[Rfam]
Shown here is a 62-nucleotide sequence from Nostoc sp. T09, a member of the family "Nitrogen stress-induced RNA 1".
It scores 55 bits against the family's covariance model.
The organism belongs to Nostoc, within Bacteria.
Pairs were carried over by alignment from the consensus structure.
The family's RNA type in Rfam is small RNA.

RNA sequence: UAGUAGAUACACCCUGAUAACUAACUCCCCUAGUUGGCUAGUACCUACUGGGGUUUUUUAAU
Numbered sequence: 001u002a003g004u005a006g007a008u009a010c011a012c013c014c015u016g017a018u019a020a021c022u023a024a025c026u027c028c029c030c031u032a033g034u035u036g037g038c039u040a041g042u043a044c045c046u047a048c049u050g051g052g053g054u055u056u057u058u059u060a061a062u
Stems, first nucleotide, its partner, number of pairs: 003012002028053007036045002

Background
The literature on the family includes a 2010 paper in J Mol Biol by Ionescu et al., "Heterocyst-specific transcription of NsiR1, a non-coding RNA encoded in a tandem array of direct repeats in cyanobacteria".